The family of this 87-nucleotide sequence from Eutrema salsugineum is "Small nucleolar RNA R16". Rfam classes the family as a C/D-box small nucleolar RNA. Its family is annotated with RNA processing and nucleolus in the Gene Ontology. A search with the family's covariance model found it, with a score of 69 bits. Pairs were carried over by alignment from the consensus structure, which was predicted with PFOLD.
Nucleotides: 087
Base pairs, nucleotide, nucleotide: 004084005083006082007081
Number, partner (000 for none) and nucleotide at each position: 001000a002000u003000u004084g005083g006082c007081a008000a009000a010000u011000g012000a013000c014000g015000a016000a017000u018000u019000g020000a021000u022000u023000a024000a025000u026000u027000a028000u029000g030000c031000u032000u033000a034000a035000c036000a037000c038000g039000c040000a041000g042000a043000a044000u045000a046000a047000u048000a049000a050000u051000g052000u053000u054000g055000a056000c057000a058000a059000a060000c061000a062000a063000u064000c065000u066000c067000c068000g069000c070000u071000u072000a073000u074000u075000a076000u077000c078000u079000g080000a081007u082006g083005c084004c085000u086000u087000g